The record is a 410-nucleotide sequence from Embleya scabrispora, which matches "Bacterial RNase P class A" in Rfam. Rfam links the family to the GO terms ribonuclease P activity, dimeric ribonuclease P complex and tRNA processing. It is annotated as a ribozyme. Ribonuclease P (RNase P) is a ubiquitous endoribonuclease, found in archaea, bacteria and eukarya as well as chloroplasts and mitochondria. Its best characterised activity is the generation of mature 5'-ends of tRNAs by cleaving the 5'-leader elements of precursor-tRNAs. Cellular RNase Ps are ribonucleoproteins. RNA from bacterial RNase Ps retains its catalytic activity in the absence of the protein subunit, i.e. it is a ribozyme. Isolated eukaryotic and archaeal RNase P RNA has not been shown to retain its catalytic function, but is still essential for the catalytic activity of the holoenzyme. Although the archaeal and eukaryotic holoenzyme s have a much greater protein content than the bacterial ones, the RNA cores from all the three lineages are homologous -- helices corresponding to P1, P2, P3, P4, and P10/11 are common to all cellular RNase P RNAs. Yet, there is considerable sequence variation, particularly among the eukaryotic RNAs. Identified in Yersinia as Ysr151/RnpB. For this family Rfam cites "Identification and characterization of small RNAs in Yersinia pestis" (Beauregard et al., RNA Biol, 2013).

RNA sequence: UGAGUCGGCCGGGCGGCCGCGUCGGGAUUCCUCCUCGGAGGGUUCCGCCGAGGAACGUCCGGGCUCCACAGGGCAGGGUGGUCGGUAACACCGACCCGGGGCGACCCGCGGGACAGUGCCACAGAAAACAGACCGCCGGCGUCCUCGGACGACCGGUAAGGGUGAAACGGUGGUGUAAGAGACCACCAGCGCCCGAGGUGACUCGGGCGGCUAGGUAAACCCCACCCGGAGCAAGGUCAAGAGGAGCACCGUCAAACGUGCUCUGCGCGAACGUUCGAGGGCGGCCCGCCCGAGUUCGCGGGUAGACCGCUGGAGGCUGUCGGCAACGGCAGUCGUAGAUGGAUGGCCGCCUCCCCGGGCGCCGCAAGGCUCCCGGGAGACAGAACCCGGCGUAAAGGCCGACUCAUCCG
Numbered sequence: 001u002g003a004g005u006c007g008g009c010c011g012g013g014c015g016g017c018c019g020c021g022u023c024g025g026g027a028u029u030c031c032u033c034c035u036c037g038g039a040g041g042g043u044u045c046c047g048c049c050g051a052g053g054a055a056c057g058u059c060c061g062g063g064c065u066c067c068a069c070a071g072g073g074c075a076g077g078g079u080g081g082u083c084g085g086u087a088a089c090a091c092c093g094a095c096c097c098g099g100g101g102c103g104a105c106c107c108g109c110g111g112g113a114c115a116g117u118g119c120c121a122c123a124g125a126a127a128a129c130a131g132a133c134c135g136c137c138g139g140c141g142u143c144c145u146c147g148g149a150c151g152a153c154c155g156g157u158a159a160g161g162g163u164g165a166a167a168c169g170g171u172g173g174u175g176u177a178a179g180a181g182a183c184c185a186c187c188a189g190c191g192c193c194c195g196a197g198g199u200g201a202c203u204c205g206g207g208c209g210g211c212u213a214g215g216u217a218a219a220c221c222c223c224a225c226c227c228g229g230a231g232c233a234a235g236g237u238c239a240a241g242a243g244g245a246g247c248a249c250c251g252u253c254a255a256a257c258g259u260g261c262u263c264u265g266c267g268c269g270a271a272c273g274u275u276c277g278a279g280g281g282c283g284g285c286c287c288g289c290c291c292g293a294g295u296u297c298g299c300g301g302g303u304a305g306a307c308c309g310c311u312g313g314a315g316g317c318u319g320u321c322g323g324c325a326a327c328g329g330c331a332g333u334c335g336u337a338g339a340u341g342g343a344u345g346g347c348c349g350c351c352u353c354c355c356c357g358g359g360c361g362c363c364g365c366a367a368g369g370c371u372c373c374c375g376g377g378a379g380a381c382a383g384a385a386c387c388c389g390g391c392g393u394a395a396a397g398g399c400c401g402a403c404u405c406a407u408c409c410g
Stems, first nucleotide, its partner, number of pairs: 001406010012351007020050002023047008055393003059390005064231004071287004076227005081095005096110001097108004111222002116220002118216003133161002135157005140151004169187006189211001190209008235308004267299006279291004315334008